The record is a 70-nucleotide RNA from Danio rerio, which matches "mir-24 microRNA precursor family" in Rfam. The family has 63 seed sequences and 1,372 matches in Rfam 15.1. For this family Rfam cites "Identification of novel genes coding for small expressed RNAs" (Lagos-Quintana et al., Science, 2001). Rfam's curators put it in the seed alignment. The source organism's lineage runs through Eukaryota, Metazoa, Otomorpha, Cypriniphysae and Danio.

[Rfam]
RNA sequence: GCCUCCCGUGCCUACUGAGCUGAUUACAGUACUGUGCAAACACUGGCUCAGUUCAGCAGGAACAGGAGUC
Numbered sequence: 001g002c003c004u005c006c007c008g009u010g011c012c013u014a015c016u017g018a019g020c021u022g023a024u025u026a027c028a029g030u031a032c033u034g035u036g037c038a039a040a041c042a043c044u045g046g047c048u049c050a051g052u053u054c055a056g057c058a059g060g061a062a063c064a065g066g067a068g069u070c
Stems, first nucleotide, its partner, number of pairs: 003068004008063002011060003015056009027045004